[Rfam]
RNA sequence: CCCAGCUGUAACCAAGUGGAGUCGUUAAAGGUUUAGGAUGGGAUACUGUGUCACUACAUCCCGGAAGUAACAUUGCACGAUGGCUGCCCAUUACAAGGCUGCAGUCUCUAGAGUUGCCUUGGUGGAGACCGAGGUGACUUGUGAGAUAGUGAAACCCGUACCGCCGGAGGCUGGAAACAGAGCACGGAAAAGGGUUCGCUGUAGUACGGUGUAAGGAUAACAGUAGUUGUGUAACUUCCUGGCAUCUCAGUGAUUCGCGAGAUUC
Numbered sequence: 001c002c003c004a005g006c007u008g009u010a011a012c013c014a015a016g017u018g019g020a021g022u023c024g025u026u027a028a029a030g031g032u033u034u035a036g037g038a039u040g041g042g043a044u045a046c047u048g049u050g051u052c053a054c055u056a057c058a059u060c061c062c063g064g065a066a067g068u069a070a071c072a073u074u075g076c077a078c079g080a081u082g083g084c085u086g087c088c089c090a091u092u093a094c095a096a097g098g099c100u101g102c103a104g105u106c107u108c109u110a111g112a113g114u115u116g117c118c119u120u121g122g123u124g125g126a127g128a129c130c131g132a133g134g135u136g137a138c139u140u141g142u143g144a145g146a147u148a149g150u151g152a153a154a155c156c157c158g159u160a161c162c163g164c165c166g167g168a169g170g171c172u173g174g175a176a177a178c179a180g181a182g183c184a185c186g187g188a189a190a191a192g193g194g195u196u197c198g199c200u201g202u203a204g205u206a207c208g209g210u211g212u213a214a215g216g217a218u219a220a221c222a223g224u225a226g227u228u229g230u231g232u233a234a235c236u237u238c239c240u241g242g243c244a245u246c247u248c249a250g251u252g253a254u255u256c257g258c259g260a261g262a263u264u265c
Stems, first nucleotide, its partner, number of pairs: 012019002057250001060242002063239003080227002083224004088216002091214005098205008106145003111140013147151001153196005164187003171180003
Dot-bracket structure: ...........((....)).....................................(..((.(((..............((.((((.((.(((((..(((((((((((..(((((((((((((....)))))))))))))..))).(...).(((((......(((....(((....)))....)))....))))).))))))))....)))))))....)))).)).........))).)).......)...............
The record is a 265-nucleotide sequence from Cryptosporidium parvum, which matches "Protozoan signal recognition particle RNA" in Rfam. Pairs were carried over by alignment from the consensus structure, which is taken from published work. A reference for the family is Wild et al. (2002), "Towards the structure of the mammalian signal recognition particle", Curr Opin Struct Biol. It is annotated as a non-coding RNA gene.